[Rfam]
Nucleotides: 111
Base pairs, nucleotide, nucleotide: 003045005044007042014035015034016033017032018031019030020029055108056107064102065101066100067099068098069097070096076089077088078087079086080085
Number, partner (000 for none) and nucleotide at each position: 001000u002000c003045g004000c005044u006000u007042c008000a009000g010000a011000g012000g013000c014035u015034g016033g017032u018031a019030c020029a021000u022000c023000c024000g025000u026000a027000u028000u029020u030019g031018u032017a033016c034015c035014a036000a037000a038000a039000u040000c041000u042007g043000u044005a045003c046000c047000a048000a049000a050000u051000u052000a053000u054000c055108c056107a057000a058000a059000u060000u061000c062000a063000c064102u065101u066100a067099u068098g069097u070096u071000u072000g073000a074000u075000u076089a077088u078087u079086a080085a081000u082000a083000c084000a085080u086079u087078g088077a089076u090000u091000u092000u093000c094000a095000a096070a097069g098068c099067a100066u101065a102064a103000u104000u105000a106000c107056u108055g109000a110000a111000c

Shown here is a 111-nucleotide sequence from Vibrio vulnificus, a member of the family "Vibrio RNA IGR5". For this family Rfam cites "Experimental discovery of sRNAs in Vibrio cholerae by direct cloning, 5S/tRNA depletion and parallel sequencing" (Liu et al., Nucleic Acids Res, 2009). Rfam's curators write: Identified by direct cloning an parallel sequencing experiments with 5S/tRNA depletion. Confirmed by Northern blot. The organism belongs to Vibrio vulnificus, within Bacteria. The family's RNA type in Rfam is small RNA.